[Rfam]
RNA sequence: GGGGUGUUGAUAGACUUACCUCCACGUGGUGCACCCUGGGCAACGUAUUCUCAUACGGCAAAAAGUCUAAA
Numbered sequence: 001g002g003g004g005u006g007u008u009g010a011u012a013g014a015c016u017u018a019c020c021u022c023c024a025c026g027u028g029g030u031g032c033a034c035c036c037u038g039g040g041c042a043a044c045g046u047a048u049u050c051u052c053a054u055a056c057g058g059c060a061a062a063a064a065g066u067c068u069a070a071a
Stems, first nucleotide, its partner, number of pairs: 001037007018030003044057005
HDV ribozyme from F. prausnitzii: a 71-nucleotide sequence from Rodentolepis nana. The match comes from Rfam's covariance-model search (46 bits). The source organism's lineage runs through Eukaryota, Opisthokonta, Lophotrochozoa, Cyclophyllidea and Rodentolepis. For this family Rfam cites "Widespread occurrence of self-cleaving ribozymes" (Webb et al., Science, 2009). Rfam 15.1 lists 3,803 matches to the family in 91 species.